RNA sequence: AAUAGAUCCACCAAGGGAAGGACGAGAGCCUUCGACCAAGGUUCGAAUUGAGCGUAGCGAAAUAACAGUGCGCGUAGCGCAUUGGCCCGCAGGGUGAGGAACGAAGUGACGAAUCAUCCUUCCCCCACCACCA
Numbered sequence: 001a002a003u004a005g006a007u008c009c010a011c012c013a014a015g016g017g018a019a020g021g022a023c024g025a026g027a028g029c030c031u032u033c034g035a036c037c038a039a040g041g042u043u044c045g046a047a048u049u050g051a052g053c054g055u056a057g058c059g060a061a062a063u064a065a066c067a068g069u070g071c072g073c074g075u076a077g078c079g080c081a082u083u084g085g086c087c088c089g090c091a092g093g094g095u096g097a098g099g100a101a102c103g104a105a106g107u108g109a110c111g112a113a114u115c116a117u118c119c120u121u122c123c124c125c126c127a128c129c130a131c132c133a
Stems, first nucleotide, its partner, number of pairs: 015124007033096002036094002042091001044089002049059002066084006

Background: Rfam assigns this 133-nucleotide RNA sequence from Xenorhabdus innexi to the family "RtT RNA". The family's RNA type in Rfam is cis-regulatory element. Its family is annotated with cellular response to amino acid starvation in the Gene Ontology. Rfam's curators write: This family represents a bacterial cis-regulatory element known as RtT RNA. The exact function of RtT is unknown although it is thought that it may be involved in changing the cellular response in relation to amino acid starvation. A reference for the family is Bosl and Kersten (1991), "A novel RNA product of the tyrT operon of Escherichia coli", Nucleic Acids Res. Lineage of the source: Bacteria > Pseudomonadota > Gammaproteobacteria > Enterobacterales > Xenorhabdus.